[Rfam]
RNA: chrB-b RNA
RNA sequence: CGGGGGAAAACGCAGGCUCCCCGCUAGACGGCCCGCCGUCCAAGCUCUGC
Numbered sequence: 001c002g003g004g005g006g007a008a009a010a011c012g013c014a015g016g017c018u019c020c021c022c023g024c025u026a027g028a029c030g031g032c033c034c035g036c037c038g039u040c041c042a043a044g045c046u047c048u049g050c
Stems, first nucleotide, its partner, number of pairs: 001023006012050005027040005